[Rfam]
A member of the RNA family "Archaeal large subunit ribosomal RNA" from uncultured crenarchaeote, 374 nucleotides of a longer RNA.
The organism belongs to Thermoproteota, within Archaea.
RNA sequence: CGGGUAUACCGUAUGGCGAGGGAACUCGGCAAAAUAGCUCCGUACCUAUGGUAUAAGGAGUGCCUGCGGUUUUCAUGAAGAAUGGGAACCGCAGGUCGCAGUGACAAGGGGGUCCCGACUGUUUAAUAAAAACACAGGUGGUCGCUAGUCCGAAAGGAUGUGUACGGCCUCUGUAUCCUGGCCAGUGGCGGUACCUAAAACCUGGGUUCAACUGGGCUAAGGGCCGCUAAACGCCGGGAGUAACUCUGACUCUCUUAAGGUAGCCAAAUGCCUUGUCGGGUAAGUUCCGACGUGCAUGAAUGGAACAACGAGGGCCCCGCUGUCCCCGCCUACAACCCGGUGAAGCCACAUAAUGUGGACGAACAGUCCACAAA
Numbered sequence: 001c002g003g004g005u006a007u008a009c010c011g012u013a014u015g016g017c018g019a020g021g022g023a024a025c026u027c028g029g030c031a032a033a034a035u036a037g038c039u040c041c042g043u044a045c046c047u048a049u050g051g052u053a054u055a056a057g058g059a060g061u062g063c064c065u066g067c068g069g070u071u072u073u074c075a076u077g078a079a080g081a082a083u084g085g086g087a088a089c090c091g092c093a094g095g096u097c098g099c100a101g102u103g104a105c106a107a108g109g110g111g112g113u114c115c116c117g118a119c120u121g122u123u124u125a126a127u128a129a130a131a132a133c134a135c136a137g138g139u140g141g142u143c144g145c146u147a148g149u150c151c152g153a154a155a156g157g158a159u160g161u162g163u164a165c166g167g168c169c170u171c172u173g174u175a176u177c178c179u180g181g182c183c184a185g186u187g188g189c190g191g192u193a194c195c196u197a198a199a200a201c202c203u204g205g206g207u208u209c210a211a212c213u214g215g216g217c218u219a220a221g222g223g224c225c226g227c228u229a230a231a232c233g234c235c236g237g238g239a240g241u242a243a244c245u246c247u248g249a250c251u252c253u254c255u256u257a258a259g260g261u262a263g264c265c266a267a268a269u270g271c272c273u274u275g276u277c278g279g280g281u282a283a284g285u286u287c288c289g290a291c292g293u294g295c296a297u298g299a300a301u302g303g304a305a306c307a308a309c310g311a312g313g314g315c316c317c318c319g320c321u322g323u324c325c326c327c328g329c330c331u332a333c334a335a336c337c338c339g340g341u342g343a344a345g346c347c348a349c350a351u352a353a354u355g356u357g358g359a360c361g362a363a364c365a366g367u368c369c370a371c372a373a374a
Stems, first nucleotide, its partner, number of pairs: 001339004011333003015330004020325003037061005046051001062096015097101001109318007116310002120134003137172002140169005145162001148159004176304003180235003185232002187228005194223003201216005236254006255259001275291006354372005